small nucleolar RNA snoR135: a 145-nucleotide sequence from Carex littledalei.

RNA sequence: UCAGCAGGAAUUGUGUGUAUCGGUGUUAUGCUAAUUAUGCAUUUCAAGCCGAAAGAUUUUCCUGCCAAACAAAAGUUUGUAGAGAAUGGGCAGUUGGAUAAUGCAAUUUCUAAUGCUUAUUUCAACAAUCAUUUUCCUCACAUUU
Number, nucleotide and partner (000 for none) at each position: 001u000002c000003a000004g065005c064006a063007g062008g061009a060010a059011u000012u000013g000014u000015g042016u041017g040018u039019a038020u037021c000022g000023g000024u000025g000026u000027u000028a000029u000030g000031c000032u000033a000034a000035u000036u000037a020038u019039g018040c017041a016042u015043u000044u000045c000046a000047a000048g000049c000050c000051g000052a000053a000054a000055g000056a000057u000058u000059u010060u009061c008062c007063u006064g005065c004066c000067a000068a000069a000070c000071a000072a000073a000074a000075g000076u000077u000078u000079g139080u000081a000082g136083a135084g134085a133086a132087u131088g130089g129090g000091c000092a000093g126094u125095u124096g123097g000098a000099u000100a000101a000102u000103g000104c000105a000106a000107u000108u000109u000110c000111u000112a000113a000114u000115g000116c000117u000118u000119a000120u000121u000122u000123c096124a095125a094126c093127a000128a000129u089130c088131a087132u086133u085134u084135u083136c082137c000138u000139c079140a000141c000142a000143u000144u000145u000

The family's consensus secondary structure was predicted with RNAalifold. Rfam links the family to the GO terms nucleolus and RNA processing. The source organism's lineage runs through Eukaryota, Embryophyta, Spermatophyta, Mesangiospermae and Carex subgen. Euthyceras. For this family Rfam cites "Mining small RNA sequencing data: a new approach to identify small nucleolar RNAs in Arabidopsis" (Chen and Wu, Nucleic Acids Res, 2009).